mir-86 microRNA precursor family: a 78-nucleotide RNA sequence from Steinernema hermaphroditum.
[Rfam]
RNA sequence: GAGCCGGUUAAGUGAAUGCUUUGCCACAGUCUUAGACGUCAUUUUAUAAGCUGGGCUGAGAUUCGCUUAGACCGGAGU
Numbered sequence: 001g002a003g004c005c006g007g008u009u010a011a012g013u014g015a016a017u018g019c020u021u022u023g024c025c026a027c028a029g030u031c032u033u034a035g036a037c038g039u040c041a042u043u044u045u046a047u048a049a050g051c052u053g054g055g056c057u058g059a060g061a062u063u064c065g066c067u068u069a070g071a072c073c074g075g076a077g078u
Base pairs, nucleotide, nucleotide: 004075005074006073009069010068011067012066013065014064015063016062017061019060020059021058023056024055025054027053028052029051
A search with the family's covariance model found it, with a score of 83 bits.